[Rfam]
RNA sequence: AAGAAAACAAUUGUAUUUACAGAUAUAUCGCUGGAGAAUGGCCAGCAGUUUCUACCACGCCCCGAAAGUCGUGACUAUCCGUGAAUGGCUAACUGGU
Numbered sequence: 001a002a003g004a005a006a007a008c009a010a011u012u013g014u015a016u017u018u019a020c021a022g023a024u025a026u027a028u029c030g031c032u033g034g035a036g037a038a039u040g041g042c043c044a045g046c047a048g049u050u051u052c053u054a055c056c057a058c059g060c061c062c063c064g065a066a067a068g069u070c071g072u073g074a075c076u077a078u079c080c081g082u083g084a085a086u087g088g089c090u091a092a093c094u095g096g097u
Stems, first nucleotide, its partner, number of pairs: 018083003022079004030046005056073004061068001
RNA: Purine riboswitch aptamer